[Rfam]
RNA sequence: GAAUAUAUUUGGCAAACUUAUCGAAAGGUAAGGACGCAAAGCUAUGGGUCUAAGGGGUUCCCUAUGAUUGCCAGGCUGCCAUU
Numbered sequence: 001g002a003a004u005a006u007a008u009u010u011g012g013c014a015a016a017c018u019u020a021u022c023g024a025a026a027g028g029u030a031a032g033g034a035c036g037c038a039a040a041g042c043u044a045u046g047g048g049u050c051u052a053a054g055g056g057g058u059u060c061c062c063u064a065u066g067a068u069u070g071c072c073a074g075g076c077u078g079c080c081a082u083u
Base pairs, nucleotide, nucleotide: 012037013036017032018031019030020029021028022027040077041076042075043074045073046072047071048068049067050066055062056061
Rfam assigns this 83-nucleotide sequence from Anaerosporomusa subterranea to the family "c-di-GMP-I riboswitch aptamer".
The base pairs follow the family's consensus structure, which is taken from published work.